[Rfam]
RNA sequence: CCCGACGUGCUUCGCUUUACGUCGGGCUGAAAUCUUUCGUCCCUUCGGGACG
Numbered sequence: 001c002c003c004g005a006c007g008u009g010c011u012u013c014g015c016u017u018u019a020c021g022u023c024g025g026g027c028u029g030a031a032a033u034c035u036u037u038c039g040u041c042c043c044u045u046c047g048g049g050a051c052g
Stems, first nucleotide, its partner, number of pairs: 001026008039051005

Acido-Lenti-1 RNA: a 52-nucleotide RNA from Bacteroidales bacterium Barb4. The family has 87 seed sequences and 2,607 matches in Rfam 15.1. By type it is a small RNA. The source organism's lineage runs through Bacteria, Pseudomonadati, Bacteroidota, Bacteroidia and Bacteroidales.